[Rfam]
RNA sequence: GGGACUUGUACUCGUUGCGGUGCAACGAUUACCAAAGA
Numbered sequence: 001g002g003g004a005c006u007u008g009u010a011c012u013c014g015u016u017g018c019g020g021u022g023c024a025a026c027g028a029u030u031a032c033c034a035a036a037g038a
Base pairs, nucleotide, nucleotide: 013027014026015025016024017023018022